About this RNA
Rfam assigns this 116-nucleotide RNA from Exilibacterium tricleocarpae to the family "t44 RNA". The family's consensus secondary structure was predicted with LocARNA. It is annotated as a small RNA. The match comes from Rfam's covariance-model search (72 bits).
[Rfam]
RNA sequence: AUACAAACACACAAACGUCACACAUAUACCGGCACAUUUGCCUGGGUGCCCGGGUUGGGCCGGCCGCUUCGACGGUCGCCGCACGGGUUGGUCAAUGGGGUAUAUGGAGGCUUAAC
Numbered sequence: 001a002u003a004c005a006a007a008c009a010c011a012c013a014a015a016c017g018u019c020a021c022a023c024a025u026a027u028a029c030c031g032g033c034a035c036a037u038u039u040g041c042c043u044g045g046g047u048g049c050c051c052g053g054g055u056u057g058g059g060c061c062g063g064c065c066g067c068u069u070c071g072a073c074g075g076u077c078g079c080c081g082c083a084c085g086g087g088u089u090g091g092u093c094a095a096u097g098g099g100g101u102a103u104a105u106g107g108a109g110g111c112u113u114a115a116c
Stems, first nucleotide, its partner, number of pairs: 023106008035097004040092003048088005